This 600-nucleotide part of an RNA from Leucobacter chromiisoli belongs to the Rfam family "Bacterial large subunit ribosomal RNA". The base pairs follow the family's consensus structure, which is taken from published work. The organism belongs to Leucobacter, within Bacteria. A search with the family's covariance model found it, with a score of 2755 bits.
[Rfam]
RNA sequence: GAGCAAACGGUGGAUGCCUUGGCAUCUGGAGCCGAAGAAGGACGUAGUAAUCUGCGAUAAGCCUCGGGGAGUUGAUAAACGAGCUGUGAUCCGAGGAUUUCCGAAUGGGGAAACCCCGCCAGGGCGCGUGCGUACCUGGUGACUCCCGCCUGAAUAUAUAGGGCGGGGUGAGGGAACGUGGGGAAGUGAAACAUCUCAGUACCCACAGGAAGAGAAAACAAUAGUGAUUCCGGUAGUAGUGGCGAGCGAACCCGGAUCAGGCUAAACCGGUCAUGUGUGAUACCCGGCAGGGGUUGCUUGGUCGGGGUUGUGGGACAUGCCUGAGCGAUCUGCCGGUCGUUCGACGUGAAUGUGUUGCUAUAGGAGAACCGCUUGGAACGGCGGGCCGGAGUGGGUGAGAGUCCCGUAUCCGAAAUGGUGGCGCUGCGUGGUGUGGAUCCCAAGUAGCACGGGGCCCGAGAAAUCCCGUGUGAAUCUGUCAGGACCACCUGAUAAGCCUAAAUACUCCCAGAUGACCGAUAGCGGACAAGUACCGUGAGGGAAAGGUGAAAAGUACCCCGGGAGGGGAGUGAAAGAGUACCUGAAACCGUUUGCUUACAA
Dot-bracket structure: ((((((((((.....(((..(((((((((((((......((((((........))).....(((((((..(((........))).....)))))))...)))....(((....)))(((((((...........))))))).(.(((((((.........)))))))..).))...((((((.....((....))......))))).).........((....))..((((((.....((.....))....)))))..((((....(((((((.........................)))))))......(((.(((((...............................((((((((((.(((...(((((......)))))..(...).(((.......)))...)))...))))))))))......)))))...))).....((((((((.........))))))))......(((((......)))))..))))..)..)).))))))).))...............((....))....)).........((((....)))).............).....))))))))))....
Numbered sequence: 001g002a003g004c005a006a007a008c009g010g011u012g013g014a015u016g017c018c019u020u021g022g023c024a025u026c027u028g029g030a031g032c033c034g035a036a037g038a039a040g041g042a043c044g045u046a047g048u049a050a051u052c053u054g055c056g057a058u059a060a061g062c063c064u065c066g067g068g069g070a071g072u073u074g075a076u077a078a079a080c081g082a083g084c085u086g087u088g089a090u091c092c093g094a095g096g097a098u099u100u101c102c103g104a105a106u107g108g109g110g111a112a113a114c115c116c117c118g119c120c121a122g123g124g125c126g127c128g129u130g131c132g133u134a135c136c137u138g139g140u141g142a143c144u145c146c147c148g149c150c151u152g153a154a155u156a157u158a159u160a161g162g163g164c165g166g167g168g169u170g171a172g173g174g175a176a177c178g179u180g181g182g183g184a185a186g187u188g189a190a191a192c193a194u195c196u197c198a199g200u201a202c203c204c205a206c207a208g209g210a211a212g213a214g215a216a217a218a219c220a221a222u223a224g225u226g227a228u229u230c231c232g233g234u235a236g237u238a239g240u241g242g243c244g245a246g247c248g249a250a251c252c253c254g255g256a257u258c259a260g261g262c263u264a265a266a267c268c269g270g271u272c273a274u275g276u277g278u279g280a281u282a283c284c285c286g287g288c289a290g291g292g293g294u295u296g297c298u299u300g301g302u303c304g305g306g307g308u309u310g311u312g313g314g315a316c317a318u319g320c321c322u323g324a325g326c327g328a329u330c331u332g333c334c335g336g337u338c339g340u341u342c343g344a345c346g347u348g349a350a351u352g353u354g355u356u357g358c359u360a361u362a363g364g365a366g367a368a369c370c371g372c373u374u375g376g377a378a379c380g381g382c383g384g385g386c387c388g389g390a391g392u393g394g395g396u397g398a399g400a401g402u403c404c405c406g407u408a409u410c411c412g413a414a415a416u417g418g419u420g421g422c423g424c425u426g427c428g429u430g431g432u433g434u435g436g437a438u439c440c441c442a443a444g445u446a447g448c449a450c451g452g453g454g455c456c457c458g459a460g461a462a463a464u465c466c467c468g469u470g471u472g473a474a475u476c477u478g479u480c481a482g483g484a485c486c487a488c489c490u491g492a493u494a495a496g497c498c499u500a501a502a503u504a505c506u507c508c509c510a511g512a513u514g515a516c517c518g519a520u521a522g523c524g525g526a527c528a529a530g531u532a533c534c535g536u537g538a539g540g541g542a543a544a545g546g547u548g549a550a551a552a553g554u555a556c557c558c559c560g561g562g563a564g565g566g567g568a569g570u571g572a573a574a575g576a577g578u579a580c581c582u583g584a585a586a587c588c589g590u591u592u593g594c595u596u597a598c599a600a
Stems, first nucleotide, its partner, number of pairs: 001596010016581001017546002021517002023514007030506002032173002040102003043056003062096007071084003107116003117141007143170001145167007177208001178206005188195002218225002228502001229256005239247002259499004267305007312441003316435005352424010363411003369384005387391001393405003447471008478493005533540002556567004